Source information
This 95-nucleotide RNA sequence from Desulfobacter postgatei belongs to the Rfam family "Group II catalytic intron D1-D4-1". A search with the family's covariance model found it, with a score of 37 bits. Lineage of the source: Bacteria > Thermodesulfobacteriota > Desulfobacterales > Desulfobacter > Desulfobacter postgatei. The base pairs follow the family's consensus structure. From the family's description: Group II introns are found in rRNA, tRNA and mRNA of organelles in fungi, plants and protists, and also in mRNA in bacteria.
RNA sequence: CUUAUGCUUUGUAACCUGUAUGGUGAGGUGGCAGAUGUCAGCAGAUGUCAUAGUAGCCAAAUGCCUGGAGUAAUGCCCCGGAUAUGGUGAAAGGC
Numbered sequence: 001c002u003u004a005u006g007c008u009u010u011g012u013a014a015c016c017u018g019u020a021u022g023g024u025g026a027g028g029u030g031g032c033a034g035a036u037g038u039c040a041g042c043a044g045a046u047g048u049c050a051u052a053g054u055a056g057c058c059a060a061a062u063g064c065c066u067g068g069a070g071u072a073a074u075g076c077c078c079c080g081g082a083u084a085u086g087g088u089g090a091a092a093g094g095c
Base pairs, nucleotide, nucleotide: 003022004021005020006019007018037046038045039044047095048094049093056088057087058086066080067079068078